A member of the RNA family "Small nucleolar RNA SNORD28" from Marmota monax, 74 nucleotides long. The base pairs follow the family's consensus structure, which was predicted with PFOLD. The family has 20 seed sequences and 229 matches in Rfam 15.1. For this family Rfam cites "A small nucleolar RNA requirement for site-specific ribose methylation of rRNA in Xenopus" (Tycowski et al., Proc Natl Acad Sci U S A, 1996). Rfam links the family to the GO terms RNA processing and nucleolus. It scores 69 bits against the family's covariance model. It is annotated as a C/D-box small nucleolar RNA. The organism belongs to Marmota, within Eukaryota.

RNA sequence: GUCAGCUGAUUGGGAUGAAUAAGCUGAUGCUUUGUGAGGUACAGAAGUUAACAGCAGUUAGAGUUCUGAUGGCA
Numbered sequence: 001g002u003c004a005g006c007u008g009a010u011u012g013g014g015a016u017g018a019a020u021a022a023g024c025u026g027a028u029g030c031u032u033u034g035u036g037a038g039g040u041a042c043a044g045a046a047g048u049u050a051a052c053a054g055c056a057g058u059u060a061g062a063g064u065u066c067u068g069a070u071g072g073c074a
Stems, first nucleotide, its partner, number of pairs: 001073004